[Rfam]
RNA sequence: CCCAAGGCUCACGCCCUGGGCUAUUACACGUCGCUCCUUCAGAGCU
Numbered sequence: 001c002c003c004a005a006g007g008c009u010c011a012c013g014c015c016c017u018g019g020g021c022u023a024u025u026a027c028a029c030g031u032c033g034c035u036c037c038u039u040c041a042g043a044g045c046u
Stems, first nucleotide, its partner, number of pairs: 001020004006015003033045004
Dot-bracket structure: ((((.(((....))).))))............((((.....)))).
Acido-Lenti-1 RNA: a 46-nucleotide RNA sequence. Rfam's curators put it in the seed alignment. Rfam 15.1 lists 2,607 matches to the family in 171 species. The base pairs follow the family's consensus structure, which is taken from published work.